The family of this 127-nucleotide RNA from Moschus moschiferus is "Small nucleolar RNA SNORA25". The organism belongs to Moschus, within Eukaryota. ACA25 is a member of the H/ACA class of snoRNA that guide the sites of modification of uridines to pseudouridines. The family's RNA type in Rfam is H/ACA-box small nucleolar RNA. It scores 114 bits against the family's covariance model. The family has 30 seed sequences and 1,129 matches in Rfam 15.1.

[Rfam]
RNA sequence: AGGUCAUUUCAAAGAGGGCUUAUGAGACCAAAACCAGGAGCUCUUAAUGCGGUGACCAAAGAUUGAAGUUCUCCAUAGAAUAUAACAGUCAUUCAACAGUGCUAUGUUUUCCUGAGGAAUAAUAAGA
Numbered sequence: 001a002g003g004u005c006a007u008u009u010c011a012a013a014g015a016g017g018g019c020u021u022a023u024g025a026g027a028c029c030a031a032a033a034c035c036a037g038g039a040g041c042u043c044u045u046a047a048u049g050c051g052g053u054g055a056c057c058a059a060a061g062a063u064u065g066a067a068g069u070u071c072u073c074c075a076u077a078g079a080a081u082a083u084a085a086c087a088g089u090c091a092u093u094c095a096a097c098a099g100u101g102c103u104a105u106g107u108u109u110u111c112c113u114g115a116g117g118a119a120u121a122a123u124a125a126g127a
Stems, first nucleotide, its partner, number of pairs: 002057006014045008023037001026035001072118003077113002080110001085105001087103002090101004